[Rfam]
RNA sequence: GGGGUGCGAUAGACUUACCUCCGCGUGGUGCACCCCUGGCAACGUAUUCUCAUACGGCAAAAAAGUCUAU
Numbered sequence: 001g002g003g004g005u006g007c008g009a010u011a012g013a014c015u016u017a018c019c020u021c022c023g024c025g026u027g028g029u030g031c032a033c034c035c036c037u038g039g040c041a042a043c044g045u046a047u048u049c050u051c052a053u054a055c056g057g058c059a060a061a062a063a064a065g066u067c068u069a070u
Stems, first nucleotide, its partner, number of pairs: 001036007017029003043056005
Record summary:
The family of this 70-nucleotide RNA sequence from Rodentolepis nana is "HDV ribozyme from F. prausnitzii". The literature on the family includes a 2009 paper in Science by Webb et al., "Widespread occurrence of self-cleaving ribozymes".